Annotation:
Rfam assigns this 114-nucleotide RNA from Dissostichus mawsoni to the family "U5 spliceosomal RNA". Rfam's curators write: U5 RNA is a component of both types of known spliceosome. Rfam links the family to the GO terms U5 snRNP and spliceosomal tri-snRNP complex assembly. The family's RNA type in Rfam is spliceosomal small nuclear RNA. The base pairs follow the family's consensus structure, which is taken from published work. The match comes from Rfam's covariance-model search (93 bits). Taxonomically the source falls in Dissostichus (Eukaryota, Vertebrata, Euteleostomi, Actinopteri). A reference for the family is Zwieb (1997), "The uRNA database", Nucleic Acids Res.
[Rfam]
RNA sequence: ACACUCUUGUUUCUCUUCAGAGCGCAUAAAUCUUUCGCCUUUUACUAAAGAUUUCCGUGGAGAGGAACAUUAAGAGUUUCAAACAAUUUUUUGAUGCCCUGCGUAUGUGGGCUU
Numbered sequence: 001a002c003a004c005u006c007u008u009g010u011u012u013c014u015c016u017u018c019a020g021a022g023c024g025c026a027u028a029a030a031u032c033u034u035u036c037g038c039c040u041u042u043u044a045c046u047a048a049a050g051a052u053u054u055c056c057g058u059g060g061a062g063a064g065g066a067a068c069a070u071u072a073a074g075a076g077u078u079u080c081a082a083a084c085a086a087u088u089u090u091u092u093g094a095u096g097c098c099c100u101g102c103g104u105a106u107g108u109g110g111g112c113u114u
Stems, first nucleotide, its partner, number of pairs: 003077004009068011028054008094114001096112004
Dot-bracket structure: ..((((..(((((((((((........((((((((...........))))))))...))))))))))).....))))................(.((((.........)))).)